[Rfam]
RNA sequence: UGAUGACUGUGCCUCCUCUUGCCUUCAGACCUGGCACUAGGGUUUUAGGUCAUCAUAAAUAAAAAAUUGAUUUUCUUCACUCAGAGAAUAAUAGAAUAAUGGGUUUUAUCUGACUAUUCUCUGAAAUUUGCGGAAUCAAACAGCU
Numbered sequence: 001u002g003a004u005g006a007c008u009g010u011g012c013c014u015c016c017u018c019u020u021g022c023c024u025u026c027a028g029a030c031c032u033g034g035c036a037c038u039a040g041g042g043u044u045u046u047a048g049g050u051c052a053u054c055a056u057a058a059a060u061a062a063a064a065a066a067u068u069g070a071u072u073u074u075c076u077u078c079a080c081u082c083a084g085a086g087a088a089u090a091a092u093a094g095a096a097u098a099a100u101g102g103g104u105u106u107u108a109u110c111u112g113a114c115u116a117u118u119c120u121c122u123g124a125a126a127u128u129u130g131c132g133g134a135a136u137c138a139a140a141c142a143g144c145u
Stems, first nucleotide, its partner, number of pairs: 001055008014042004020036004069137006081124010094111001096109003
The family of this 145-nucleotide RNA sequence from Echinops telfairi is "Small nucleolar RNA SNORA79". Rfam's curators put it in the seed alignment. On this family, see Schattner et al., RNA 2006: "A computational screen for mammalian pseudouridylation guide H/ACA RNAs". Rfam describes the family as follows. ACA65 (SNORA79) is a member of the H/ACA class of snoRNAs that guide the sites of modification of uridines to pseudouridines. It is annotated as an H/ACA-box small nucleolar RNA. Rfam 15.1 lists 944 matches to the family in 375 species.